[Rfam]
RNA sequence: UCUUCAUUUCACGUACUCUUUCACCGGUCAGAGAAAGAGACGAGAGAGUGUGCGAAAUGAAGAGA
Numbered sequence: 001u002c003u004u005c006a007u008u009u010c011a012c013g014u015a016c017u018c019u020u021u022c023a024c025c026g027g028u029c030a031g032a033g034a035a036a037g038a039g040a041c042g043a044g045a046g047a048g049u050g051u052g053c054g055a056a057a058u059g060a061a062g063a064g065a
Stems, first nucleotide, its partner, number of pairs: 001063007010054001012052006019045004